This 129-nucleotide RNA sequence from Nyctereutes procyonoides belongs to the Rfam family "Small nucleolar RNA SNORA25".
The source organism's lineage runs through Eukaryota, Gnathostomata, Dipnotetrapodomorpha, Amniota and Nyctereutes.
ACA25 is a member of the H/ACA class of snoRNA that guide the sites of modification of uridines to pseudouridines.
Pairs were carried over by alignment from the consensus structure, which was predicted with RNAfold.
RNA sequence: AGGUCAUUUCAAAGAAAGACUGUGGGAUUCUGAAAUCAGGAGCUCUUAACACAAUGACUCAAAAUUAAAGAUCUCCAUAGUGUACUAUAGUUACUCAAUAGUUCUAUGUAUUCCCAAGGAAAUAUUUAG
Numbered sequence: 001a002g003g004u005c006a007u008u009u010c011a012a013a014g015a016a017a018g019a020c021u022g023u024g025g026g027a028u029u030c031u032g033a034a035a036u037c038a039g040g041a042g043c044u045c046u047u048a049a050c051a052c053a054a055u056g057a058c059u060c061a062a063a064a065u066u067a068a069a070g071a072u073c074u075c076c077a078u079a080g081u082g083u084a085c086u087a088u089a090g091u092u093a094c095u096c097a098a099u100a101g102u103u104c105u106a107u108g109u110a111u112u113c114c115c116a117a118g119g120a121a122a123u124a125u126u127u128a129g
Base pairs, nucleotide, nucleotide: 002059003058004057005056006055007054014047015046017044018043021040023039026037027036072122074120075119076118080114082112087107088106089105090104093102094101095100